[Rfam]
RNA sequence: AACUUAUCCAGAGUGGUGGAGGGACUGGCCCUAUGAAACCCGGCAACAGCUUUUGAGGCAACUCAAAAAGAAAUGUGCUAAUUCCUGCAAGCAUAAGCUUGAAAGAUAAGGA
Numbered sequence: 001a002a003c004u005u006a007u008c009c010a011g012a013g014u015g016g017u018g019g020a021g022g023g024a025c026u027g028g029c030c031c032u033a034u035g036a037a038a039c040c041c042g043g044c045a046a047c048a049g050c051u052u053u054u055g056a057g058g059c060a061a062c063u064c065a066a067a068a069a070g071a072a073a074u075g076u077g078c079u080a081a082u083u084c085c086u087g088c089a090a091g092c093a094u095a096a097g098c099u100u101g102a103a104a105g106a107u108a109a110g111g112a
Stems, first nucleotide, its partner, number of pairs: 003110006013041001015040003021031003025087001027085002042079004047075002050070005083104001088101005